[Rfam]
RNA sequence: ACUCAACAGUUAUUUUUUAUAAAGAGUGACUCUAAGUUGUAAAAGCACGCCGUUACUAGACUUGUUCUAGGUAGACGGAACCUUGAUCAGCUUUAUAGCUCUAAUCCUUACUAUUAGGAGUUU
Number, nucleotide and partner (000 for none) at each position: 001a000002c000003u000004c000005a000006a000007c000008a000009g000010u000011u000012a000013u000014u000015u000016u000017u000018u000019a000020u000021a000022a000023a102024g101025a100026g099027u098028g000029a000030c000031u000032c000033u000034a093035a092036g091037u090038u089039g000040u000041a000042a000043a084044a083045g082046c000047a000048c000049g000050c078051c077052g076053u075054u000055a000056c000057u000058a000059g000060a000061c000062u000063u000064g000065u000066u000067c000068u000069a000070g000071g000072u000073a000074g000075a053076c052077g051078g050079a000080a000081c000082c045083u044084u043085g000086a000087u000088c000089a038090g037091c036092u035093u034094u000095a000096u000097a000098g027099c026100u025101c024102u023103a000104a000105u000106c000107c000108u000109u000110a000111c000112u000113a000114u000115u000116a000117g000118g000119a000120g000121u000122u000123u000